[Rfam]
Nucleotides: 094
Stems, first nucleotide, its partner, number of pairs: 001043005010031008067093002070090001072087004
Number, partner (000 for none) and nucleotide at each position: 001043g002042g003041u004040u005039c006000g007000g008000g009000a010031g011030c012029u013028g014027a015026c016025c017024g018000g019000u020000g021000g022000g023000a024017c025016g026015g027014u028013c029012g030011g031010c032000a033000g034000g035000a036000a037000u038000g039005g040004a041003a042002c043001c044000c045000a046000g047000c048000u049000u050000c051000u052000g053000u054000u055000u056000c057000g058000c059000a060000u061000g062000g063000g064000g065000c066000a067093g068092c069000a070090c071000c072087g073086c074085c075084g076000a077000g078000g079000c080000c081000c082000g083000a084075c085074g086073g087072c088000u089000g090070g091000c092068g093067c094000g

Annotation: Shown here is a 94-nucleotide RNA sequence from Pararhodobacter oceanensis, a member of the family "Rhodo-rpoB RNA". The organism belongs to Pararhodobacter, within Bacteria. A search with the family's covariance model found it, with a score of 74 bits. The family's RNA type in Rfam is cis-regulatory element.